RNA sequence: ACUAUUUUGGCAGAUUAGUGCAAUAAAUUUAGAAUUUAUGGAUGUAAUUUUUAUUACAAAUAGUA
Number, nucleotide and partner (000 for none) at each position: 001a064002c063003u062004a061005u060006u059007u058008u000009g000010g021011c020012a019013g000014a000015u000016u000017a000018g000019u012020g011021c010022a000023a039024u038025a037026a036027a035028u000029u000030u000031a000032g000033a000034a000035u027036u026037u025038a024039u023040g000041g000042a000043u000044g057045u056046a055047a054048u053049u000050u000051u000052u000053a048054u047055u046056a045057c044058a007059a006060a005061u004062a003063g002064u001065a000

Overview
tRNA: a 65-nucleotide RNA sequence from Exoprosopa adelaidica. Pairs were carried over by alignment from the consensus structure, which is taken from published work. It is annotated as a transfer RNA. Rfam's curators put it in the seed alignment.